[Rfam]
RNA sequence: UUGCAGCCAAUUAAGUCAACCAUGCUCUUUUCCCCAUGGGGGCCUGGUUUUCAAUGACUGCAAACAACAGCAUUCUUGAUAUCCAACCUGCUGCUAAGCAUGGGUUGCCUUAAGGGACCUUGGAUACAGCC
Number, nucleotide and partner (000 for none) at each position: 001u000002u053003g052004c000005a050006g000007c000008c000009a000010a000011u000012u000013a000014a000015g000016u000017c000018a000019a048020c047021c046022a045023u000024g000025c042026u041027c040028u039029u000030u000031u000032c000033c000034c000035c000036a000037u000038g000039g028040g027041g026042g025043c000044c000045u022046g021047g020048u019049u000050u005051u000052c003053a002054a000055u000056g000057a000058c000059u000060g000061c000062a000063a000064a000065c000066a000067a000068c000069a000070g000071c000072a000073u000074u000075c000076u000077u000078g119079a000080u117081a000082u000083c000084c107085a106086a105087c104088c103089u102090g000091c000092u000093g000094c000095u000096a000097a000098g000099c000100a000101u000102g089103g088104g087105u086106u085107g084108c000109c000110u000111u000112a000113a000114g000115g000116g000117a080118c000119c078120u000121u000122g000123g000124a000125u000126a000127c000128a000129g000130c000131c000
This 131-nucleotide sequence from Pipistrellus kuhlii belongs to the Rfam family "Small nucleolar RNA SNORA70". Lineage of the source: Eukaryota > Bilateria > Vertebrata > Sarcopterygii > Pipistrellus. Rfam describes the family as follows. snoRNA U70 seems to be exclusive to mammals and is a member of the H/ACA class of snoRNA which contain H (ANANNA) and ACA box motifs. H/ACA box snoRNAs are involved in the conversion of uridines to pseudouridines (5-ribosyluracil) a constituent of structural RNAs (transfer, ribosomal, small nuclear, and small nucleolar). The match comes from Rfam's covariance-model search (98 bits). Pairs were carried over by alignment from the consensus structure, which was predicted with PFOLD. Rfam links the family to the GO terms nucleolus and RNA processing.